Rfam assigns this 82-nucleotide RNA sequence from Rattus norvegicus to the family "mir-3596 microRNA precursor family". Rfam's curators put it in the seed alignment. Taxonomically the source falls in Rattus (Eukaryota, Sarcopterygii, Glires, Muridae). Gene Ontology terms of the family: RISC complex and miRNA-mediated post-transcriptional gene silencing.
[Rfam]
RNA sequence: UCCCAAGGAAAGCUAGGAGGCUGUACAGUUAUCUCCCUUGUUGUAACUCUAAACUAUACAACCUACUACCUCAGCCUGGGAG
Numbered sequence: 001u002c003c004c005a006a007g008g009a010a011a012g013c014u015a016g017g018a019g020g021c022u023g024u025a026c027a028g029u030u031a032u033c034u035c036c037c038u039u040g041u042u043g044u045a046a047c048u049c050u051a052a053a054c055u056a057u058a059c060a061a062c063c064u065a066c067u068a069c070c071u072c073a074g075c076c077u078g079g080g081a082g
Stems, first nucleotide, its partner, number of pairs: 002080004007075001011071002014068003018064003023059003027055003030045003